Actinobacteria sRNA Ms_IGR-5: a 205-nucleotide RNA from Nocardioides sp. By type it is a small RNA. Taxonomically the source falls in Nocardioides (Bacteria, Bacillati, Actinomycetota, Nocardioidaceae).
[Rfam]
RNA sequence: ACACGGGAAAGGAGGUGGUCCGAAGAAUGAUUUCUUUUGGGACGCGUGAGGUGGCUGCCCGCUAGCAGCCUGCCGUUCGAGCCGGACCACGUCUGAGCUCAGGACCUAUGCGGCUGCGGCGAAUCCAUCGCAGUCACCCGGCCCGCAGGUGACCCCGGCCCGUCCACCGGGGAGGGUCUUCGACCACAUCUGCGGGCCGCCGCAU
Numbered sequence: 001a002c003a004c005g006g007g008a009a010a011g012g013a014g015g016u017g018g019u020c021c022g023a024a025g026a027a028u029g030a031u032u033u034c035u036u037u038u039g040g041g042a043c044g045c046g047u048g049a050g051g052u053g054g055c056u057g058c059c060c061g062c063u064a065g066c067a068g069c070c071u072g073c074c075g076u077u078c079g080a081g082c083c084g085g086a087c088c089a090c091g092u093c094u095g096a097g098c099u100c101a102g103g104a105c106c107u108a109u110g111c112g113g114c115u116g117c118g119g120c121g122a123a124u125c126c127a128u129c130g131c132a133g134u135c136a137c138c139c140g141g142c143c144c145g146c147a148g149g150u151g152a153c154c155c156c157g158g159c160c161c162g163u164c165c166a167c168c169g170g171g172g173a174g175g176g177u178c179u180u181c182g183a184c185c186a187c188a189u190c191u192g193c194g195g196g197c198c199g200c201c202g203c204a205u
Stems, first nucleotide, its partner, number of pairs: 014059006060121003063116004068111002071108001139199013153172006